[Rfam]
RNA sequence: GGCUGAUCUGGAGAUAGUGAGUUGUCUUAAUUGAUUGUUGACAGUCAGUUACAGAUAGAACUUGUUCUACUCUUUCCCCCAUCCUUACUACUGCACUUGACUAGUUUUUU
Numbered sequence: 001g002g003c004u005g006a007u008c009u010g011g012a013g014a015u016a017g018u019g020a021g022u023u024g025u026c027u028u029a030a031u032u033g034a035u036u037g038u039u040g041a042c043a044g045u046c047a048g049u050u051a052c053a054g055a056u057a058g059a060a061c062u063u064g065u066u067c068u069a070c071u072c073u074u075u076c077c078c079c080c081a082u083c084c085u086u087a088c089u090a091c092u093g094c095a096c097u098u099g100a101c102u103a104g105u106u107u108u109u110u
Stems, first nucleotide, its partner, number of pairs: 001106005007100002010098002015093001016089006044071001047068002